[Rfam]
RNA sequence: CCGAGUGUACGACCACUCGUUGCCUACUCGGGCAUGCGUGACUGGUAACGGUCAGGUGUGAAGCCCCGACGACAAUGUACCCCCGCCCCGGCGGCACAUACCUUACGCAAGUAAGGUUGUGGACACUGUUAGCAGCAAGACGGUGAAGGGG
Numbered sequence: 001c002c003g004a005g006u007g008u009a010c011g012a013c014c015a016c017u018c019g020u021u022g023c024c025u026a027c028u029c030g031g032g033c034a035u036g037c038g039u040g041a042c043u044g045g046u047a048a049c050g051g052u053c054a055g056g057u058g059u060g061a062a063g064c065c066c067c068g069a070c071g072a073c074a075a076u077g078u079a080c081c082c083c084c085g086c087c088c089c090g091g092c093g094g095c096a097c098a099u100a101c102c103u104u105a106c107g108c109a110a111g112u113a114a115g116g117u118u119g120u121g122g123a124c125a126c127u128g129u130u131a132g133c134a135g136c137a138a139g140a141c142g143g144u145g146a147a148g149g150g151g
Stems, first nucleotide, its partner, number of pairs: 002019006028069005033060005039054006083094004095121004105112002125144006
RNA: Group II catalytic intron D1-D4-7